[Rfam]
RNA sequence: CGACCAGGUAGAGGUGCGCCUUUCAUCAGUAACCUUGCAUCCAUGCUGAGGCAAGCGCAAGGCGAAAGGGAACGGCGCCGAAGGACGGCCGAAGCCUCACCGGUCGAUCCUGGGGCGCAGCGAAACACGCUGCGCACUGUCGCACAACGCGGAGAGCUGCCAUGGUC
Numbered sequence: 001c002g003a004c005c006a007g008g009u010a011g012a013g014g015u016g017c018g019c020c021u022u023u024c025a026u027c028a029g030u031a032a033c034c035u036u037g038c039a040u041c042c043a044u045g046c047u048g049a050g051g052c053a054a055g056c057g058c059a060a061g062g063c064g065a066a067a068g069g070g071a072a073c074g075g076c077g078c079c080g081a082a083g084g085a086c087g088g089c090c091g092a093a094g095c096c097u098c099a100c101c102g103g104u105c106g107a108u109c110c111u112g113g114g115g116c117g118c119a120g121c122g123a124a125a126c127a128c129g130c131u132g133c134g135c136a137c138u139g140u141c142g143c144a145c146a147a148c149g150c151g152g153a154g155a156g157c158u159g160c161c162a163u164g165g166u167c
Base pairs, nucleotide, nucleotide: 007161008160009159010158011157016078017077018076019075020074022072023071024070033062034061035060036059037058038057082111083110084109085108086106087105088104089103090102091101112138113137115135116134117133118132119131120130121129122128140152141151142150143149

A member of the RNA family "Lysine riboswitch aptamer" from Slackia piriformis, 167 nucleotides long.
Rfam links the family to the GO term lysine biosynthetic process.
Riboswitches are metabolite binding domains within certain messenger RNAs that serve as precision sensors for their corresponding targets.